The family of this 154-nucleotide RNA from Amborella trichopoda is "MIR8565 microRNA precursor family". Taxonomically the source falls in Amborella (Eukaryota, Viridiplantae, Embryophyta, Amborellaceae).
[Rfam]
RNA sequence: CCCACACCCAUGUGAGUAGGACCCCAAAGGAUCACCAUUAAAUUUGGCACAGAUCUCUAGAAAAGUUAUCACAUGGGUGUGGGACUUGACUUUUCUAGAGAUCUGUGCCAAAUUUGAUGGUGAUCAUUUGGGGUCCUACUCCCAUGGGUGUGGG
Number, nucleotide and partner (000 for none) at each position: 001c000002c153003c152004a151005c150006a149007c148008c147009c146010a145011u144012g143013u000014g000015a140016g139017u138018a137019g136020g135021a134022c133023c132024c131025c130026a129027a128028a127029g000030g125031a124032u123033c000034a121035c120036c119037a118038u117039u116040a115041a114042a113043u112044u111045u110046g109047g108048c107049a106050c105051a104052g103053a102054u101055c100056u099057c098058u097059a096060g095061a094062a093063a092064a091065g090066u089067u088068a087069u082070c081071a080072c079073a078074u000075g000076g000077g000078u073079g072080u071081g070082g069083g000084a000085c000086u000087u068088g067089a066090c065091u064092u063093u062094u061095c060096u059097a058098g057099a056100g055101a054102u053103c052104u051105g050106u049107g048108c047109c046110a045111a044112a043113u042114u041115u040116g039117a038118u037119g036120g035121u034122g000123a032124u031125c030126a000127u028128u027129u026130g025131g024132g023133g022134u021135c020136c019137u018138a017139c016140u015141c000142c000143c012144a011145u010146g009147g008148g007149u006150g005151u004152g003153g002154g000